[Rfam]
RNA: Small nucleolar RNA U2-19
Organism: Meleagris gallopavo
RNA sequence: AGUCUGCAAUGAAAAACUGCCAAAUCUGAACACCAGAAGAUAAAACGAUCUUCCAGAUAUAUACAGUAUGCAGUUCUGAGA
Numbered sequence: 001a002g003u004c005u006g007c008a009a010u011g012a013a014a015a016a017c018u019g020c021c022a023a024a025u026c027u028g029a030a031c032a033c034c035a036g037a038a039g040a041u042a043a044a045a046c047g048a049u050c051u052u053c054c055a056g057a058u059a060u061a062u063a064c065a066g067u068a069u070g071c072a073g074u075u076c077u078g079a080g081a
Base pairs, nucleotide, nucleotide: 030060032058034056038051039050040049041048
Dot-bracket structure: .............................(.(.(...((((......))))....).).).....................